[Rfam]
RNA sequence: CGCUUGGAUAGAGGCGCGAGGUUCAUCAGUACUUCCGGGGGAAACAGGCAACGGGCCGGAAGGAAAGGGGACAUCGCCGAAGCGUCCGGGGAGUGCCUGAUGCCCGGAUGGCUGGGUCGCCGUGAAAUACGCGGCGGACUGUCACAUGUUUUUGUG
Numbered sequence: 001c002g003c004u005u006g007g008a009u010a011g012a013g014g015c016g017c018g019a020g021g022u023u024c025a026u027c028a029g030u031a032c033u034u035c036c037g038g039g040g041g042a043a044a045c046a047g048g049c050a051a052c053g054g055g056c057c058g059g060a061a062g063g064a065a066a067g068g069g070g071a072c073a074u075c076g077c078c079g080a081a082g083c084g085u086c087c088g089g090g091g092a093g094u095g096c097c098u099g100a101u102g103c104c105c106g107g108a109u110g111g112c113u114g115g116g117u118c119g120c121c122g123u124g125a126a127a128u129a130c131g132c133g134g135c136g137g138a139c140u141g142u143c144a145c146a147u148g149u150u151u152u153u154g155u156g
Base pairs, nucleotide, nucleotide: 016077017076018075019074021072022071023070024069032062033061034060035059036058037057038056081113082112083111084109085108086107087106088105089104090103092101114140115139117137118136119135120134121133122132123131124130145156146155147154148153